[Rfam]
RNA sequence: GGCUGGUCCGAUAGUAGUGGGAUAUUGUCACAACUUAUUAACAUUAAUGCCACUGAAGUUGGUAUACAAUCUCCCACUGCCAAAUUUGGCUUUUA
Number, nucleotide and partner (000 for none) at each position: 001g000002g000003c000004u000005g091006g090007u089008c088009c000010g087011a086012u000013a000014g000015u082016a078017g077018u076019g075020g074021g073022a000023u000024a000025u000026u000027g000028u000029c000030a000031c000032a000033a000034c000035u000036u064037a063038u062039u000040a060041a059042c000043a000044u000045u000046a000047a000048u000049g000050c000051c000052a000053c000054u000055g000056a000057a000058g000059u041060u040061g000062g038063u037064a036065u000066a000067c000068a000069a000070u000071c000072u000073c021074c020075c019076a018077c017078u016079g000080c000081c000082a015083a000084a000085u000086u011087u010088g008089g007090c006091u005092u000093u000094u000095a000
Shown here is a 95-nucleotide sequence from Pongo abelii, a member of the family "Y RNA". The family's consensus secondary structure is taken from published work. A search with the family's covariance model found it, with a score of 42 bits. Y RNAs are components of the Ro ribonucleoprotein particle (Ro RNP), in association with Ro60 and La proteins. The Y RNAs and Ro60 and La proteins are well conserved, but the function of the Ro RNP is not known. In humans the RNA component can be one of four small RNAs -- hY1, hY3, hY4 and hY5. By type it is a non-coding RNA gene.